[Rfam]
RNA sequence: UUGGUAUCCCAGCUAAUCGCAAGAUUUAUCUUGAGGAAAGUCCAAACUUCAUAGAGCAAUGGUGGCAGUUAACGACUGCUGAAAGUAAUUUUAAGGAAAGUGCAACAGAAAGUAAACCGCCUGUAUAGGUAAGGGUGAAAGGGUGAGGUAAGAGCUCACCAGAGAUAUAGGCAACUAUAUUUGCUUGUAAACCCCACCAGAAGCAAGAAUGUAAAAAAAGAAUAUAGGGCUGCUCGUCCUUCUUUUGGUUAUUCGCUUGAGCUUGUAUGUAAAUACAAGCCUAGAAAAAUGAUUAGCAAAUACAGAAUUUGGCUUAUAGGGAUGCCAAUUUA
Numbered sequence: 001u002u003g004g005u006a007u008c009c010c011a012g013c014u015a016a017u018c019g020c021a022a023g024a025u026u027u028a029u030c031u032u033g034a035g036g037a038a039a040g041u042c043c044a045a046a047c048u049u050c051a052u053a054g055a056g057c058a059a060u061g062g063u064g065g066c067a068g069u070u071a072a073c074g075a076c077u078g079c080u081g082a083a084a085g086u087a088a089u090u091u092u093a094a095g096g097a098a099a100g101u102g103c104a105a106c107a108g109a110a111a112g113u114a115a116a117c118c119g120c121c122u123g124u125a126u127a128g129g130u131a132a133g134g135g136u137g138a139a140a141g142g143g144u145g146a147g148g149u150a151a152g153a154g155c156u157c158a159c160c161a162g163a164g165a166u167a168u169a170g171g172c173a174a175c176u177a178u179a180u181u182u183g184c185u186u187g188u189a190a191a192c193c194c195c196a197c198c199a200g201a202a203g204c205a206a207g208a209a210u211g212u213a214a215a216a217a218a219a220g221a222a223u224a225u226a227g228g229g230c231u232g233c234u235c236g237u238c239c240u241u242c243u244u245u246u247g248g249u250u251a252u253u254c255g256c257u258u259g260a261g262c263u264u265g266u267a268u269g270u271a272a273a274u275a276c277a278a279g280c281c282u283a284g285a286a287a288a289a290u291g292a293u294u295a296g297c298a299a300a301u302a303c304a305g306a307a308u309u310u311g312g313c314u315u316a317u318a319g320g321g322a323u324g325c326c327a328a329u330u331u332a
Stems, first nucleotide, its partner, number of pairs: 001328010011317001012297007020033005038315003042312005047203004056234001060199005065079005080094001081092004095194002100192002102188003117134002119130004142160006162184001163182008207254004217245006227239004261280008
Background
Bacterial RNase P class A: a 332-nucleotide RNA from Streptobacillus moniliformis. It is annotated as a ribozyme.